Rfam assigns this 148-nucleotide RNA sequence from Bacillus amyloliquefaciens to the family "FMN riboswitch aptamer (RFN element)".
NCBI's taxonomy places the organism under Bacteria, Bacillati, Caryophanales, Bacillaceae, Bacillus.
The base pairs follow the family's consensus structure, which is taken from published work.
The sequence is in the family's curated seed alignment.

[Rfam]
RNA sequence: UGUAUCCUUCGGGGCUGGGUGAAAAUCCCGACCGGCGGUAAUAAGGCGCUCCUGCGCUUUACAGCCCGUGACCCGUAUGCAUCUGUAUACGGUGGAUUCAGUGAAAAGCUGAAGCCGACAGUGAAAGUCUGGAUGGGAGAAGGAUGAG
Numbered sequence: 001u002g003u004a005u006c007c008u009u010c011g012g013g014g015c016u017g018g019g020u021g022a023a024a025a026u027c028c029c030g031a032c033c034g035g036c037g038g039u040a041a042u043a044a045g046g047c048g049c050u051c052c053u054g055c056g057c058u059u060u061a062c063a064g065c066c067c068g069u070g071a072c073c074c075g076u077a078u079g080c081a082u083c084u085g086u087a088u089a090c091g092g093u094g095g096a097u098u099c100a101g102u103g104a105a106a107a108g109c110u111g112a113a114g115c116c117g118a119c120a121g122u123g124a125a126a127g128u129c130u131g132g133a134u135g136g137g138a139g140a141a142g143g144a145u146g147a148g
Base pairs, nucleotide, nucleotide: 003146004145005144006143007142008141009140010139017029018028019027031128032127033117034116035069036068037067038066064115065114073092074091097113098112099111100110101109119131120130121129